[Rfam]
RNA sequence: ACUGGAUGAAAUUAAAAUGCUAUUCUGUCAUCAUAAUAGUUCACAUGGGCACUGUCAGGAGAGCAUUUUAAUUUUGUCAAGU
Dot-bracket structure: (((.((((((.((((((((((.(((((.((...(.((.......))..)...)).))))).)))))))))).)))))).)))
Numbered sequence: 001a002c003u004g005g006a007u008g009a010a011a012u013u014a015a016a017a018u019g020c021u022a023u024u025c026u027g028u029c030a031u032c033a034u035a036a037u038a039g040u041u042c043a044c045a046u047g048g049g050c051a052c053u054g055u056c057a058g059g060a061g062a063g064c065a066u067u068u069u070a071a072u073u074u075u076g077u078c079a080a081g082u
Stems, first nucleotide, its partner, number of pairs: 001082003005078006012071010023060005029054002034049001036046002